A member of the RNA family "Small nucleolar RNA SNORD67" from Prolemur simus, 106 nucleotides long. The literature on the family includes a 2001 paper in EMBO J by Huttenhofer et al., "RNomics: an experimental approach that identifies 201 candidates for novel, small, non-messenger RNAs in mouse". Rfam links the family to the GO terms nucleolus and RNA processing.

RNA sequence: UAUAAAAGUAGUGGGCUGCACACUGGUGGAGUCAUAGGAUGAGAGGAUACAGGCAAUGUUCAGUACUGCCCUAAGGAAAAAGGUGCGGAGGGGCCACCCAGUCAUC
Numbered sequence: 001u002a003u004a005a006a007a008g009u010a011g012u013g014g015g016c017u018g019c020a021c022a023c024u025g026g027u028g029g030a031g032u033c034a035u036a037g038g039a040u041g042a043g044a045g046g047a048u049a050c051a052g053g054c055a056a057u058g059u060u061c062a063g064u065a066c067u068g069c070c071c072u073a074a075g076g077a078a079a080a081a082g083g084u085g086c087g088g089a090g091g092g093g094c095c096a097c098c099c100a101g102u103c104a105u106c
Base pairs, nucleotide, nucleotide: 004105007102022064023063024062025061026059027058028057031054032053033052037050039048040047